[Rfam]
Description: Shown here is a 315-nucleotide RNA from Ceuthmochares aereus, a member of the family "Small Cajal body-specific RNA 7". It scores 166 bits against the family's covariance model. For this family Rfam cites "Cajal body-specific small nuclear RNAs: a novel class of 2'-O-methylation and pseudouridylation guide RNAs" (Darzacq et al., EMBO J, 2002). Its family is annotated with nucleolus and RNA processing in the Gene Ontology. NCBI's taxonomy places the organism under Eukaryota, Opisthokonta, Archosauria, Aves, Ceuthmochares.

Nucleotides: 315
Stems, first nucleotide, its partner, number of pairs: 001314004181213006188206001190201002193198001
Number, partner (000 for none) and nucleotide at each position: 001314u002313g003312g004311a005000a006000g007000u008000g009000a010000u011000g012000a013000a014000a015000u016000a017000g018000a019000g020000a021000u022000a023000a024000u025000c026000g027000g028000a029000u030000g031000u032000c033000u034000c035000u036000g037000a038000a039000u040000g041000g042000a043000g044000u045000g046000u047000g048000u049000g050000u051000g052000a053000u054000a055000a056000a057000u058000a059000g060000a061000a062000u063000u064000u065000a066000a067000a068000c069000c070000a071000a072000g073000u074000g075000a076000g077000a078000u079000g080000g081000g082000g083000g084000u085000u086000g087000g088000g089000g090000g091000u092000g093000g094000a095000g096000a097000a098000u099000g100000u101000g102000u103000g104000u105000g106000c107000a108000g109000g110000c111000g112000c113000a114000u115000g116000u117000a118000u119000a120000g121000a122000a123000a124000a125000g126000g127000c128000u129000u130000u131000a132000a133000a134000u135000g136000g137000g138000g139000g140000c141000a142000c143000u144000g145000a146000u147000a148000a149000u150000g151000c152000a153000g154000u155000g156000c157000u158000g159000a160000u161000u162000c163000c164000g165000g166000a167000g168000u169000g170000c171000a172000u173000c174000u175000g176000a177000g178000g179000c180000a181213u182212g183211u184210u185209g186208u187000u188206a189000a190201g191200u192000u193198c194000u195000g196000g197000g198193g199000u200191g201190c202000c203000a204000c205000u206188u207000u208186g209185c210184a211183a212182c213181a214000c215000u216000g217000c218000c219000a220000a221000u222000g223000a224000u225000u226000a227000a228000a229000g230000c231000c232000c233000c234000a235000a236000a237000c238000a239000a240000g241000c242000c243000c244000a245000c246000c247000a248000g249000c250000a251000c252000a253000a254000g255000c256000c257000u258000a259000g260000g261000c262000a263000u264000c265000c266000u267000a268000a269000a270000u271000c272000u273000c274000u275000a276000a277000c278000a279000g280000g281000u282000u283000c284000g285000c286000u287000a288000a289000u290000g291000a292000a293000g294000g295000u296000g297000a298000u299000c300000c301000u302000g303000u304000g305000a306000u307000c308000u309000g310000a311004u312003c313002c314001a315000a